[Rfam]
RNA sequence: UCCACCCGUGAAGCAGGCAGUCGAGUUUUGCUCUUGCUUGCUUCAUACCUCCCUGUUGGACUUGGGCCGAGCUUUAUGCUCGGCCUUUUUU
Numbered sequence: 001u002c003c004a005c006c007c008g009u010g011a012a013g014c015a016g017g018c019a020g021u022c023g024a025g026u027u028u029u030g031c032u033c034u035u036g037c038u039u040g041c042u043u044c045a046u047a048c049c050u051c052c053c054u055g056u057u058g059g060a061c062u063u064g065g066g067c068c069g070a071g072c073u074u075u076a077u078g079c080u081c082g083g084c085c086u087u088u089u090u091u
Base pairs, nucleotide, nucleotide: 008046009045010044011043012042013041014040015039016038017037018036019035020034065085066084067083068082069081070080071079072078

About this RNA:
The record is a 91-nucleotide sequence from Pseudorhodobacter sp. MZDSW-24AT, which matches "Singlet oxygen resistance RNA X" in Rfam. By type it is a small RNA. A search with the family's covariance model found it, with a score of 53 bits. Taxonomically the source falls in Pseudorhodobacter (Bacteria, Pseudomonadota, Rhodobacterales, Paracoccaceae).